[Rfam]
RNA sequence: ACCGAGGGCCGUGACUGGCGCGCUGGGAUGGGACCGACCAUCGGGGAGCGGCCUGGAACGACAAGUGCCGUGCGCCUGGGCCGAACCU
Numbered sequence: 001a002c003c004g005a006g007g008g009c010c011g012u013g014a015c016u017g018g019c020g021c022g023c024u025g026g027g028a029u030g031g032g033a034c035c036g037a038c039c040a041u042c043g044g045g046g047a048g049c050g051g052c053c054u055g056g057a058a059c060g061a062c063a064a065g066u067g068c069c070g071u072g073c074g075c076c077u078g079g080g081c082c083g084a085a086c087c088u
Stems, first nucleotide, its partner, number of pairs: 006054007015045002017076005028041004067081003
Rfam assigns this 88-nucleotide RNA from Streptomyces acidiscabies to the family "ZMP/ZTP riboswitch aptamer (pfl RNA motif)".